[Rfam]
RNA sequence: CCAAAAUGCUUCUAGGGUUCCGGUUGAAGUUAUAAAAUGCUUGAACGACAGGUCCGAGAGAAGCGAGCUAGGCUUGAGCAAUUUCAAAAGAAUUCAAGUUAGCUGCACGGCGGGAAAAAAGCCCGGGAGGU
Dot-bracket structure: ......((((((..((...((((((.((((........)))).)))..).)).))....))))))((((((...........................)))))).(.[...(((.......))).)..]..
Source information:
A member of the RNA family "Guanidine-I riboswitch aptamer" from Pleurocapsa sp. PCC 7327, 131 nucleotides long. NCBI's taxonomy places the organism under Bacteria, Cyanobacteriota, Cyanophyceae, Pleurocapsaceae, Pleurocapsa. Rfam links the family to the GO term regulation of gene expression. The match comes from Rfam's covariance-model search (73 bits).